[Rfam]
RNA: Listeria Hfq binding LhrA
RNA sequence: AGUAUAGAGUUUUAUCCUGAUGAAAGCAAAACUAUAUAUUUUGUUUUCAUGGGGAUAAGACCCUAUCAUGGUUAUAGUGGCUUUCGGUGUAUCCAUCUUCCAAUAGAUUAACGUUUGUUAAUCAUCUGUUUUGACACCGAACCAUUAUUUGUUUUCAUUCAUCUCAUUUGCCGUGUAGUUUCAGUCUAUGCCUCAUCCCGUUAUGCAUAGACAAAUGAACAUGAUGGCGACGCUGAACAUUUUGUUCAGCGUAUUUUUUUU
Numbered sequence: 001a002g003u004a005u006a007g008a009g010u011u012u013u014a015u016c017c018u019g020a021u022g023a024a025a026g027c028a029a030a031a032c033u034a035u036a037u038a039u040u041u042u043g044u045u046u047u048c049a050u051g052g053g054g055a056u057a058a059g060a061c062c063c064u065a066u067c068a069u070g071g072u073u074a075u076a077g078u079g080g081c082u083u084u085c086g087g088u089g090u091a092u093c094c095a096u097c098u099u100c101c102a103a104u105a106g107a108u109u110a111a112c113g114u115u116u117g118u119u120a121a122u123c124a125u126c127u128g129u130u131u132u133g134a135c136a137c138c139g140a141a142c143c144a145u146u147a148u149u150u151g152u153u154u155u156c157a158u159u160c161a162u163c164u165c166a167u168u169u170g171c172c173g174u175g176u177a178g179u180u181u182c183a184g185u186c187u188a189u190g191c192c193u194c195a196u197c198c199c200g201u202u203a204u205g206c207a208u209a210g211a212c213a214a215a216u217g218a219a220c221a222u223g224a225u226g227g228c229g230a231c232g233c234u235g236a237a238c239a240u241u242u243u244g245u246u247c248a249g250c251g252u253a254u255u256u257u258u259u260u261u
Stems, first nucleotide, its partner, number of pairs: 004066004009061006015054004020050009030040002074148007083141008102130006109120004170228005178220004184212008230252005236246004